Rfam assigns this 72-nucleotide RNA sequence from Mycoplasma capricolum to the family "tRNA".
RNA sequence: GGCAACAUGGCCAAGCGGCUAAGGCAUGGGUCUGCAACACCCUGAUCAUCGGUUCGAAUCCGAUUGUUGCCU
Numbered sequence: 001g002g003c004a005a006c007a008u009g010g011c012c013a014a015g016c017g018g019c020u021a022a023g024g025c026a027u028g029g030g031u032c033u034g035c036a037a038c039a040c041c042c043u044g045a046u047c048a049u050c051g052g053u054u055c056g057a058a059u060c061c062g063a064u065u066g067u068u069g070c071c072u
Stems, first nucleotide, its partner, number of pairs: 001071007010025003028042004048064005
It is one of the family's seed sequences. Taxonomically the source falls in Mycoplasma (Bacteria, Bacillati, Mycoplasmatota, Mollicutes).